[Rfam]
RNA: U4 spliceosomal RNA
RNA sequence: AUCUAAGUGCAUGGGCAGAAACCGCAGCAGUGAAGAUUUUAUCUGAGCUCGGUUUUUUGCUAGUUUAAAACUACAACUAUUGACUGCUUCCGUUGGCCUUACGGGUCGACGGGGAAUUUUUGGAAACACUUUUUUUUUGGUG
Numbered sequence: 001a002u003c004u005a006a007g008u009g010c011a012u013g014g015g016c017a018g019a020a021a022c023c024g025c026a027g028c029a030g031u032g033a034a035g036a037u038u039u040u041a042u043c044u045g046a047g048c049u050c051g052g053u054u055u056u057u058u059g060c061u062a063g064u065u066u067a068a069a070a071c072u073a074c075a076a077c078u079a080u081u082g083a084c085u086g087c088u089u090c091c092g093u094u095g096g097c098c099u100u101a102c103g104g105g106u107c108g109a110c111g112g113g114g115a116a117u118u119u120u121u122g123g124a125a126a127c128a129c130u131u132u133u134u135u136u137u138u139g140g141u142g
Stems, first nucleotide, its partner, number of pairs: 020054005026049003034044003088114012127142004